Shown here is a 576-nucleotide part of an RNA from uncultured bacterium 70, a member of the family "Bacterial small subunit ribosomal RNA". The family has 99 seed sequences and 42,628 matches in Rfam 15.1. It is one of the family's seed sequences. Rfam links the family to the GO terms ribosome and structural constituent of ribosome.

RNA sequence: UAACAUGAGAGUUUGAUCCUGGCUCAGAAUCAACGCUGGCGGCGUGCCUAACACAUGCAAGUCGAACGCGAGGGUCCCGCAAGGGACUAGUAGAGUGGCAAACGGGUGAGUAACACGUGGGUGACCUGCCUUCGAGUGGGGGAUAACGUCCCGAAAGGGACGCUAAUACCGCAUGACAUCCUGCCGUUGAAAUCGGUGGAGAUCAAAGCUGGGGAUCGCAAGACCUAGCGCUUGAAGAGGGGCCCGCGUCCGAUUAGCUAGUUGGUGAGGUAACGGCUCACCAAGGCAACGAUCGGUAGCCGGCCUGAGAGGGCGGACGGCCACACUGGGACUGAGACACGGCCCAGACUCCUACGGGAGGCAGCAGUGGGGAAUUGUUCACAAUGGGCGCAAGCCUGAUGACGCAACGCCGCGUGGAGGAUGAAGAUCUUCGGGUCGUAAACUCCUUUCGAUCGAGACGAAUGGCCCCUGGGCUAAUCACCAGGGGAGUGACGGUACCGAGAGAAGAAGCCCCGGCUAACUCCGUGCCAGCAGCCGCGGUAAUACGGGGGGGGCAAGCGUUGUUCGGAAUUACUG
Number, nucleotide and partner (000 for none) at each position: 001u000002a000003a000004c000005a000006u000007g000008a000009g025010a024011g023012u022013u021014u000015g000016a000017u000018c000019c000020u000021g013022g012023c011024u010025c009026a000027g566028a565029a564030u563031c000032a562033a561034c560035g559036c558037u557038g000039g413040c412041g411042g410043c409044g408045u406046g405047c371048c000049u000050a000051a000052c369053a368054c367055a000056u366057g365058c364059a000060a000061g099062u098063c097064g000065a000066a096067c095068g000069c000070g091071a000072g000073g088074g087075u086076c085077c084078c083079g000080c000081a000082a000083g078084g077085g076086a075087c074088u073089a000090g000091u070092a000093g000094a000095g067096u066097g063098g062099c061100a000101a000102a000103c000104g000105g000106g324107u323108g322109a000110g000111u000112a000113a000114c000115a249116c248117g247118u246119g245120g244121g243122u242123g000124a000125c241126c240127u000128g000129c000130c237131u236132u235133c234134g233135a232136g231137u000138g172139g000140g170141g169142g000143a000144u000145a000146a000147c162148g161149u160150c159151c158152c157153g000154a000155a000156a000157g152158g151159g150160a149161c148162g147163c000164u000165a000166a000167u000168a000169c141170c140171g000172c138173a000174u000175g000176a000177c000178a203179u202180c201181c000182u000183g000184c199185c198186g197187u196188u195189g194190a000191a000192a000193u000194c189195g188196g187197u186198g185199g184200a000201g180202a179203u178204c000205a000206a000207a000208g229209c228210u227211g226212g225213g224214g000215a000216u000217c000218g000219c000220a000221a000222g000223a000224c213225c212226u211227a210228g209229c208230g000231c136232u135233u134234g133235a132236a131237g130238a000239g000240g126241g125242g122243c121244c120245c119246g118247c117248g116249u115250c296251c295252g294253a000254u000255u000256a000257g287258c286259u285260a000261g000262u284263u283264g282265g281266u280267g279268a278269g277270g000271u000272a000273a000274c000275g000276g000277c269278u268279c267280a266281c265282c264283a263284a262285g259286g258287c257288a000289a000290c000291g000292a000293u000294c252295g251296g250297u000298a000299g321300c320301c319302g318303g314304c313305c312306u311307g000308a000309g000310a000311g306312g305313g304314c303315g000316g000317a000318c302319g301320g300321c299322c108323a107324c106325a000326c347327u346328g345329g344330g343331a000332c000333u000334g000335a000336g000337a000338c000339a000340c000341g000342g000343c330344c329345c328346a327347g326348a000349c360350u359351c358352c357353u000354a000355c000356g000357g352358g351359a350360g349361g000362c000363a000364g058365c057366a056367g054368u053369g052370g000371g047372g000373a000374a000375u000376u000377g403378u000379u402380c401381a400382c000383a000384a000385u398386g397387g396388g395389c394390g000391c000392a000393a000394g389395c388396c387397u386398g385399a000400u381401g380402a379403c377404g000405c046406a045407a000408c044409g043410c042411c041412g040413c039414g000415u000416g446417g445418a444419g443420g000421a000422u000423g000424a000425a000426g437427a436428u435429c434430u000431u000432c000433g000434g429435g428436u427437c426438g000439u000440a000441a000442a000443c419444u418445c417446c416447u000448u000449u000450c507451g000452a000453u501454c500455g499456a000457g000458a000459c000460g493461a000462a000463u000464g000465g000466c487467c486468c485469c484470u483471g482472g000473g000474c000475u000476a000477a000478u000479c000480a000481c000482c471483a470484g469485g468486g467487g466488a000489g000490u000491g000492a000493c460494g000495g000496u000497a000498c000499c455500g454501a453502g000503a000504g000505a000506a000507g450508a000509a000510g555511c554512c553513c552514c551515g000516g000517c000518u000519a000520a000521c550522u549523c548524c547525g546526u000527g000528c000529c000530a000531g538532c537533a000534g000535c000536c000537g532538c531539g000540g000541u000542a000543a000544u000545a000546c525547g524548g523549g522550g521551g514552g513553g512554g511555c510556a000557a037558g036559c035560g034561u033562u032563g030564u029565u028566c027567g000568g000569a000570a000571u000572u000573a000574c000575u000576g000